[Rfam]
Rfam assigns this 102-nucleotide sequence from [Clostridium] innocuum to the family "Purine riboswitch aptamer". Pairs were carried over by alignment from the consensus structure, which is taken from published work. It scores 74 bits against the family's covariance model.
RNA sequence: ACAUGUAUUGACAUACAUGCUUGUAUAUACCCUGUAAUAAGGUCAGGGAGUUUCUAGCCGUUCACCGUAAACGAACGGGCUACAAGCAAACAAUUACUCUUU
Numbered sequence: 001a002c003a004u005g006u007a008u009u010g011a012c013a014u015a016c017a018u019g020c021u022u023g024u025a026u027a028u029a030c031c032c033u034g035u036a037a038u039a040a041g042g043u044c045a046g047g048g049a050g051u052u053u054c055u056a057g058c059c060g061u062u063c064a065c066c067g068u069a070a071a072c073g074a075a076c077g078g079g080c081u082a083c084a085a086g087c088a089a090a091c092a093a094u095u096a097c098u099c100u101u102u
Stems, first nucleotide, its partner, number of pairs: 018088008030048005058078006

Lineage of the source: Bacteria > Eubacteriales > Clostridiaceae > Clostridium > [Clostridium] innocuum.